[Rfam]
RNA: ZMP/ZTP riboswitch aptamer (pfl RNA motif)
Organism: Leifsonia tongyongensis
RNA sequence: UUCUGAGGUCGCAACUGGCGUUCAAAUGGUCACCAUUGGGAAGCGACGUGUGCCUUGAUUUCAUGGGCGGAUUCGGCCGCGCGCCUGGGUCGAUACG
Numbered sequence: 001u002u003c004u005g006a007g008g009u010c011g012c013a014a015c016u017g018g019c020g021u022u023c024a025a026a027u028g029g030u031c032a033c034c035a036u037u038g039g040g041a042a043g044c045g046a047c048g049u050g051u052g053c054c055u056u057g058a059u060u061u062c063a064u065g066g067g068c069g070g071a072u073u074c075g076g077c078c079g080c081g082c083g084c085c086u087g088g089g090u091c092g093a094u095a096c097g
Stems, first nucleotide, its partner, number of pairs: 003052001006049001008047005015040002017085005026036004074092005